Rfam assigns this 105-nucleotide RNA from Molossus molossus to the family "Vault RNA". The source organism's lineage runs through Eukaryota, Deuterostomia, Theria, Molossidae and Molossus. The family's RNA type in Rfam is non-coding RNA gene. The family has 73 seed sequences and 2,873 matches in Rfam 15.1. The match comes from Rfam's covariance-model search (56 bits). Rfam describes the family as follows. This family of RNAs are found as part of the enigmatic vault ribonucleoprotein complex.
Nucleotides: 105
Stems, first nucleotide, its partner, number of pairs: 002100006013089003018085001020083002026079008
Number, partner (000 for none) and nucleotide at each position: 001000g002100g003099g004098c005097u006096g007095g008000c009000u010000u011000u012000a013089g014088c015087u016000c017000a018085g019000c020083g021082g022000u023000c024000c025000c026079u027078u028077u029076g030075a031074g032073u033072u034000g035000a036000g037000c038000u039000u040000u041000c042000a043000g044000c045000u046000u047000g048000c049000u050000a051000a052000c053000c054000a055000c056000u057000c058000u059000u060000g061000c062000u063000u064000g065000c066000g067000a068000g069000g070000g071000u072033g073032g074031u075030u076029c077028a078027a079026g080000a081000c082021c083020c084000a085018c086000a087015g088014g089013u090000g091000c092000u093000c094000u095007c096006c097005a098004g099003c100002c101000c102000u103000a104000a105000a